[Rfam]
RNA sequence: UUCUUAUCGUGAGAGACGGAGGGAUUGGCCCUAUGAUGUCUCAGCAACCAGCCUAUAUUUUAGGUAUGGUGCUAAUUCCAAUAGACGGGGACGUCUUGAAGAUAAGAA
Numbered sequence: 001u002u003c004u005u006a007u008c009g010u011g012a013g014a015g016a017c018g019g020a021g022g023g024a025u026u027g028g029c030c031c032u033a034u035g036a037u038g039u040c041u042c043a044g045c046a047a048c049c050a051g052c053c054u055a056u057a058u059u060u061u062a063g064g065u066a067u068g069g070u071g072c073u074a075a076u077u078c079c080a081a082u083a084g085a086c087g088g089g090g091a092c093g094u095c096u097u098g099a100a101g102a103u104a105a106g107a108a
Stems, first nucleotide, its partner, number of pairs: 001108008013042005021031003025081004043073004048069002051065004077100001083096005
The record is a 108-nucleotide sequence from Sporosarcina limicola, which matches "SAM riboswitch aptamer (S box leader)" in Rfam. A search with the family's covariance model found it, with a score of 93 bits.